RNA sequence: UGAAAAAUUCAGUGGCAGGUCAGCGGGUCUCAAACCAGUCCGAGCUGCUGCGGCAAAAGAGCCGUGGUGGUGCGCGUCGGAUGAAAAAGUUCGGACGAGAUCCGAGCAGGU
Numbered sequence: 001u002g003a004a005a006a007a008u009u010c011a012g013u014g015g016c017a018g019g020u021c022a023g024c025g026g027g028u029c030u031c032a033a034a035c036c037a038g039u040c041c042g043a044g045c046u047g048c049u050g051c052g053g054c055a056a057a058a059g060a061g062c063c064g065u066g067g068u069g070g071u072g073c074g075c076g077u078c079g080g081a082u083g084a085a086a087a088a089g090u091u092c093g094g095a096c097g098a099g100a101u102c103c104g105a106g107c108a109g110g111u
Stems, first nucleotide, its partner, number of pairs: 001011003012031001014029003019024001035110002038082006044071002047068003051064004089107006